[Rfam]
RNA sequence: UAACGAUGAUGAUAUGUGUAAAGGUCUCGUUCGUCGUAAUGGCUGUUUAAUCAUGGCCUUGCCGACUACUCUAUAUAUCACCACCCAUAAUCUGAGUUC
Number, nucleotide and partner (000 for none) at each position: 001u000002a098003a097004c096005g000006a000007u000008g000009a000010u000011g000012a000013u000014a000015u000016g000017u000018g000019u000020a000021a000022a000023g000024g000025u000026c000027u000028c000029g000030u000031u000032c000033g000034u000035c000036g000037u000038a000039a000040u000041g000042g000043c000044u000045g060046u000047u055048u000049a000050a000051u000052c000053a000054u000055g047056g000057c000058c000059u000060u045061g000062c000063c000064g000065a000066c000067u000068a000069c000070u000071c000072u000073a000074u000075a000076u000077a000078u000079c000080a000081c000082c000083a000084c000085c000086c000087a000088u000089a000090a000091u000092c000093u000094g000095a000096g004097u003098u002099c000
Source information: Small nucleolar RNA Z43: a 99-nucleotide RNA from Papaver nudicaule. The family has 7 seed sequences and 859 matches in Rfam 15.1. The family's RNA type in Rfam is C/D-box small nucleolar RNA.